[Rfam]
RNA: Group II catalytic intron D1-D4-1
RNA sequence: UAACCGCGGCUGAAAAGCCGCGCUGAACCCGCAGGAGUCAGCAGAAGCCAUAGUACGCGUGUUGUUGCAACAACACACGGAAGGGC
Numbered sequence: 001u002a003a004c005c006g007c008g009g010c011u012g013a014a015a016a017g018c019c020g021c022g023c024u025g026a027a028c029c030c031g032c033a034g035g036a037g038u039c040a041g042c043a044g045a046a047g048c049c050a051u052a053g054u055a056c057g058c059g060u061g062u063u064g065u066u067g068c069a070a071c072a073a074c075a076c077a078c079g080g081a082a083g084g085g086c
Stems, first nucleotide, its partner, number of pairs: 001025002005022007038045002047086003056079002059076005